This 266-nucleotide RNA from Venturia effusa belongs to the Rfam family "Fungal signal recognition particle RNA".
A search with the family's covariance model found it, with a score of 119 bits.
Pairs were carried over by alignment from the consensus structure, which is taken from published work.
Rfam links the family to the GO terms signal recognition particle, endoplasmic reticulum targeting, SRP-dependent cotranslational protein targeting to membrane, signal sequence recognition and signal recognition particle, plasma membrane targeting.
Its Rfam clan is "SRP clan".

RNA sequence: CGGCUGUAAUGGUCGUAAAGCGAGAAGGCCUCUCCAUCUGCUAGUGUCUGUCCCCGCCAUCACCCGGCAGCGAUGUGCCAAGUUCGAACCCGGUGGCGUUAUUCCACUCGUGCAGGUAGCUCACGAUCGCUGGCGAUAACUUAAGAAUGAGAGACCAACUUGAGUCAAGCAAUUGGGCAGAGAACUCUCUCCAUCGGGUGGCGGUACUUGAAUACACUUGCUCCGGUAAGGGACAGGCAGAGCGGCUAGAGCGCCGACUUUUUUUU
Numbered sequence: 001c002g003g004c005u006g007u008a009a010u011g012g013u014c015g016u017a018a019a020g021c022g023a024g025a026a027g028g029c030c031u032c033u034c035c036a037u038c039u040g041c042u043a044g045u046g047u048c049u050g051u052c053c054c055c056g057c058c059a060u061c062a063c064c065c066g067g068c069a070g071c072g073a074u075g076u077g078c079c080a081a082g083u084u085c086g087a088a089c090c091c092g093g094u095g096g097c098g099u100u101a102u103u104c105c106a107c108u109c110g111u112g113c114a115g116g117u118a119g120c121u122c123a124c125g126a127u128c129g130c131u132g133g134c135g136a137u138a139a140c141u142u143a144a145g146a147a148u149g150a151g152a153g154a155c156c157a158a159c160u161u162g163a164g165u166c167a168a169g170c171a172a173u174u175g176g177g178c179a180g181a182g183a184a185c186u187c188u189c190u191c192c193a194u195c196g197g198g199u200g201g202c203g204g205u206a207c208u209u210g211a212a213u214a215c216a217c218u219u220g221c222u223c224c225g226g227u228a229a230g231g232g233a234c235a236g237g238c239a240g241a242g243c244g245g246c247u248a249g250a251g252c253g254c255c256g257a258c259u260u261u262u263u264u265u266u
Stems, first nucleotide, its partner, number of pairs: 001015004018264003022260003027255003031251001033249001036247001038245001040243002045239009065225003069222005075217003079210005084204003088199009098140001100138004104133003108126005114121002141145001149189005159182003166175003